Overview: Shown here is a 130-nucleotide sequence from Vanilla planifolia, a member of the family "small nucleolar RNA snoR137". A reference for the family is Chen and Wu (2009), "Mining small RNA sequencing data: a new approach to identify small nucleolar RNAs in Arabidopsis", Nucleic Acids Res. Its family is annotated with RNA processing and nucleolus in the Gene Ontology. The family has 4 seed sequences and 808 matches in Rfam 15.1. The match comes from Rfam's covariance-model search (58 bits). The base pairs follow the family's consensus structure, which was predicted with RNAalifold. The organism belongs to Vanilla, within Eukaryota.
RNA sequence: GUUGCUUCCUUACUUGCAGAGUGGUCUUAUUGUCCAACUCGAAGUUGGAAAGCAUACAGAUUGUUCAGCCAGUAUUAAACAACAUGAUGUUGUAAUUAUUUCAUCAUGCUACCUGUCUCCUGGUAUAUUA
Numbered sequence: 001g002u003u004g005c006u007u008c009c010u011u012a013c014u015u016g017c018a019g020a021g022u023g024g025u026c027u028u029a030u031u032g033u034c035c036a037a038c039u040c041g042a043a044g045u046u047g048g049a050a051a052g053c054a055u056a057c058a059g060a061u062u063g064u065u066c067a068g069c070c071a072g073u074a075u076u077a078a079a080c081a082a083c084a085u086g087a088u089g090u091u092g093u094a095a096u097u098a099u100u101u102c103a104u105c106a107u108g109c110u111a112c113c114u115g116u117c118u119c120c121u122g123g124u125a126u127a128u129u130a
Stems, first nucleotide, its partner, number of pairs: 003054005019040003022036003026032001068124005074118001081110001083108001085106005